The record is a 109-nucleotide RNA from Streptosporangiaceae bacterium NEAU-GS5, which matches "Guanidine-I riboswitch aptamer" in Rfam. A search with the family's covariance model found it, with a score of 68 bits. The family has 100 seed sequences and 1,509 matches in Rfam 15.1. About the family: This family represents a conserved RNA structure found upstream of the ykkC and yxkD genes in Bacillus subtilis and related genes in other bacteria. The function of this family is unclear although it has been suggested that it may function to switch on efflux pumps and detoxification systems in response to harmful environmental molecules.
RNA sequence: GUGAGGCGCGCCUAGGGUUCCGCCGCCGGCCGCGGCCGGCGGGCUGGUCCGAGAGGCGAGGCGGACCCACCGCGGGUCCGUUCCACGGCGGGACAAAAGCCCGGGAGAC
Numbered sequence: 001g002u003g004a005g006g007c008g009c010g011c012c013u014a015g016g017g018u019u020c021c022g023c024c025g026c027c028g029g030c031c032g033c034g035g036c037c038g039g040c041g042g043g044c045u046g047g048u049c050c051g052a053g054a055g056g057c058g059a060g061g062c063g064g065a066c067c068c069a070c071c072g073c074g075g076g077u078c079c080g081u082u083c084c085a086c087g088g089c090g091g092g093a094c095a096a097a098a099g100c101c102c103g104g105g106a107g108a109c
Stems, first nucleotide, its partner, number of pairs: 007060001009058004015050002020047002022044001023042006061081008084104001086107001090102003
The pairing is the family consensus, mapped onto this sequence.